[Rfam]
RNA sequence: GCGGGGGCUUAACCCCGCAUUAAGCUUUCCGAACUAUUACUGGCAGCGGUCCAGUUUUGACCGCGAGUGGCCUCUGUCCACUCUGUUUGACGCAUCCCUGUCUAGACUUAUCGAGCCGCCCCACCGGGCGGCUCUUUUUUC
Dot-bracket structure: ((.(.((......)).(...((...(....)...)))...).))...((((.......))))..((((((.......)))))).....((((......))))..........(((((((((....))))))))).......
Numbered sequence: 001g002c003g004g005g006g007g008c009u010u011a012a013c014c015c016c017g018c019a020u021u022a023a024g025c026u027u028u029c030c031g032a033a034c035u036a037u038u039a040c041u042g043g044c045a046g047c048g049g050u051c052c053a054g055u056u057u058u059g060a061c062c063g064c065g066a067g068u069g070g071c072c073u074c075u076g077u078c079c080a081c082u083c084u085g086u087u088u089g090a091c092g093c094a095u096c097c098c099u100g101u102c103u104a105g106a107c108u109u110a111u112c113g114a115g116c117c118g119c120c121c122c123a124c125c126g127g128g129c130g131g132c133u134c135u136u137u138u139u140u141c
Stems, first nucleotide, its partner, number of pairs: 001044002004041001006015002017037001021036002026031001048062004065083006089102004113134009
The record is a 141-nucleotide RNA from Starkeya nomas, which matches "Alphaproteobacterial sRNA BjrC1505" in Rfam.
It is annotated as a small RNA.